Rfam assigns this 140-nucleotide part of an RNA from Lynx canadensis to the family "Eukaryotic large subunit ribosomal RNA".
The base pairs follow the family's consensus structure, which is taken from published work.
A reference for the family is Yusupov et al. (2001), "Crystal structure of the ribosome at 5.5 A resolution", Science.
It scores 2192 bits against the family's covariance model.
The organism belongs to Lynx, within Eukaryota.
RNA sequence: GAUGUGUUGUUGCCAUGGUAAUCCUGCUCAGUACGAGAGGAACCGCAGGUUCAGACAUUUGGUGUAUGUGCUUGGCUGAGGAGCCAAUGGGGUUUCCCGGGGCCUGAGGCGACCAGCUGCCCAAAGUCCUGGGAAUCUGU
Numbered sequence: 001g002a003u004g005u006g007u008u009g010u011u012g013c014c015a016u017g018g019u020a021a022u023c024c025u026g027c028u029c030a031g032u033a034c035g036a037g038a039g040g041a042a043c044c045g046c047a048g049g050u051u052c053a054g055a056c057a058u059u060u061g062g063u064g065u066a067u068g069u070g071c072u073u074g075g076c077u078g079a080g081g082a083g084c085c086a087a088u089g090g091g092g093u094u095u096c097c098c099g100g101g102g103c104c105u106g107a108g109g110c111g112a113c114c115a116g117c118u119g120c121c122c123a124a125a126g127u128c129c130u131g132g133g134a135a136u137c138u139g140u
Base pairs, nucleotide, nucleotide: 021051023049024048025047026046027045052106053105054104056102060099061098062097068093069092071090072087073086074085075084076083077082108137113132114131115130116129